About this RNA:
Shown here is a 130-nucleotide sequence from Hymenochirus boettgeri, a member of the family "Small Cajal body specific RNA 4". A reference for the family is Darzacq et al. (2002), "Cajal body-specific small nuclear RNAs: a novel class of 2'-O-methylation and pseudouridylation guide RNAs", EMBO J. Lineage of the source: Eukaryota > Metazoa > Batrachia > Pipidae > Hymenochirus. About the family: scaRNAs are a specific class of small nuclear RNAs which localise to the Cajal bodies and guide the modification of RNA polymerase II transcribed spliceosomal RNAs U1, U2, U4, U5 and U12. ACA26 belongs to the H/ACA box class of guide RNAs as it has the predicted hairpin-hinge-hairpin-tail structure, conserved H/ACA-box motifs and is found associated with GAR1. By type it is a small Cajal body RNA. It scores 72 bits against the family's covariance model.
Nucleotides: 130
Base pairs, nucleotide, nucleotide: 003059004057005056006055007054008053009052017044018043019042021040022039023038024037025036026035068123069122070121071120078114079113080111081109082108083107084106085105089103090102091101
Number, partner (000 for none) and nucleotide at each position: 001000g002000g003059u004057g005056g006055a007054g008053g009052g010000a011000u012000a013000a014000g015000a016000a017044a018043g019042u020000c021040a022039a023038g024037u025036c026035u027000g028000a029000g030000a031000a032000g033000u034000g035026a036025g037024a038023c039022u040021u041000g042019g043018c044017u045000g046000a047000u048000a049000c050000c051000a052009c053008c054007c055006u056005c057004c058000g059003a060000g061000a062000g063000a064000a065000a066000c067000a068123g069122g070121g071120u072000g073000g074000a075000g076000a077000g078114a079113g080111g081109g082108c083107a084106g085105c086000u087000u088000g089103a090102c091101u092000g093000c094000a095000a096000g097000g098000c099000c100000c101091a102090g103089u104000c105085g106084c107083u108082g109081c110000a111080u112000u113079c114078u115000g116000c117000a118000c119000c120071a121070c122069c123068c124000g125000a126000c127000a128000u129000c130000u